[Rfam]
RNA: Eukaryotic large subunit ribosomal RNA, nucleotides 1 to 432
Organism: Onychostoma macrolepis
RNA sequence: CGACCUCAGGUCAGGCGAGACAACCCGCUGAAUUUAAGCAUAUUACUAAGCGGAGGAAAAGAAACUAACAAGGAUUCCCUCAGUAGCGGCGAGCGAAGAGGGAAGAGCCCAGCGCCGAAUCCCCGCCCCGGCCACGGGGCGAGGGAAAUGUGGCGUACAGAAGACCGCUCUCUCGGCGCGGGCCGGGGGCCCAAGUCCUUCUGAUGGAGGCUUAGCCCGUGGACGGUGUGAGGCCGGUAGCGGCCCCCGCCCCGCCGGGGUGCGGUUCUUCUUGGAGUCGGGUUGCUUGGGAAUGCAGCCCAAAGUGGGUGGUAAACUCCAUCUAAGGCUAAAUACCGGCACGAGACCGAUAGUCGACAAGUACCGUGAGGGAAAGUUGAAAAGAACUUUGAAGAGAGAGUUCAAGAGGGCGUGAAACCGUUAAGAGGUAAA
Number, nucleotide and partner (000 for none) at each position: 001c000002g000003a000004c000005c000006u000007c000008a000009g000010g000011u000012c000013a000014g000015g000016c000017g000018a000019g000020a000021c000022a000023a000024c055025c053026c052027g051028c050029u049030g000031a000032a000033u000034u000035u042036a041037a000038g000039c000040a000041u036042a035043u000044u000045a000046c000047u000048a000049a029050g028051c027052g026053g025054a000055g024056g000057a000058a000059a000060a000061g000062a000063a000064a000065c072066u071067a000068a000069c000070a000071a066072g065073g000074a000075u000076u103077c102078c101079c100080u099081c000082a000083g000084u000085a000086g094087c093088g000089g000090c000091g000092a000093g087094c086095g000096a000097a000098g000099a080100g079101g078102g077103a076104a000105g000106a330107g329108c328109c327110c000111a000112g000113c155114g154115c153116c152117g151118a000119a149120u146121c145122c144123c143124c141125g140126c139127c138128c137129c000130g000131g000132c000133c000134a000135c000136g000137g128138g127139g126140c125141g124142a000143g123144g122145g121146a120147a000148a000149u119150g000151u117152g116153g115154c114155g113156u000157a000158c000159a000160g271161a270162a000163g267164a266165c265166c264167g263168c262169u000170c000171u000172c000173u000174c000175g000176g000177c000178g255179c254180g253181g252182g251183c000184c000185g248186g247187g246188g245189g244190c243191c242192c000193a000194a000195g211196u000197c210198c209199u208200u207201c000202u000203g000204a000205u000206g000207g200208a199209g198210g197211c195212u000213u000214a000215g000216c000217c000218c222219g000220u000221g000222g218223a000224c000225g235226g234227u000228g000229u000230g000231a000232g000233g000234c226235c225236g000237g000238u000239a000240g000241c000242g191243g190244c189245c188246c187247c186248c185249g000250c000251c182252c181253c180254g179255c178256c000257g000258g000259g000260g000261u000262g168263c167264g166265g165266u164267u163268c000269u000270u161271c160272u000273u000274g000275g000276a000277g000278u000279c000280g301281g300282g299283u298284u297285g296286c295287u000288u000289g000290g000291g000292a000293a000294u000295g286296c285297a284298g283299c282300c281301c280302a000303a000304a000305g000306u000307g324308g323309g322310u321311g320312g000313u000314a000315a000316a000317c000318u000319c000320c311321a310322u309323c308324u307325a000326a000327g109328g108329c107330u106331a000332a000333a000334u000335a000336c000337c000338g000339g000340c000341a000342c000343g000344a000345g000346a000347c000348c000349g000350a000351u000352a000353g000354u000355c000356g000357a000358c000359a000360a000361g000362u000363a000364c371365c370366g000367u000368g000369a000370g365371g364372g000373a000374a000375a000376g000377u000378u000379g000380a000381a000382a000383a000384g000385a000386a000387c398388u397389u396390u395391g000392a000393a000394g000395a390396g389397a388398g387399a000400g000401u000402u000403c000404a000405a000406g000407a000408g000409g000410g000411c000412g000413u000414g000415a000416a000417a000418c000419c000420g000421u000422u000423a000424a000425g000426a000427g000428g000429u000430a000431a000432a000